[Rfam]
RNA: mir-15 microRNA precursor family
Organism: Anabas testudineus
RNA sequence: UCUGGCGAUGCUGUAGCAGCACGGAAUGGUUUGUGGGUUAUAGUGAGAUACAGGCCAUACUGUGCUGCUGCAGUGAAGCCUGA
Numbered sequence: 001u002c003u004g005g006c007g008a009u010g011c012u013g014u015a016g017c018a019g020c021a022c023g024g025a026a027u028g029g030u031u032u033g034u035g036g037g038u039u040a041u042a043g044u045g046a047g048a049u050a051c052a053g054g055c056c057a058u059a060c061u062g063u064g065c066u067g068c069u070g071c072a073g074u075g076a077a078g079c080c081u082g083a
Stems, first nucleotide, its partner, number of pairs: 001083002004080003013071012026058010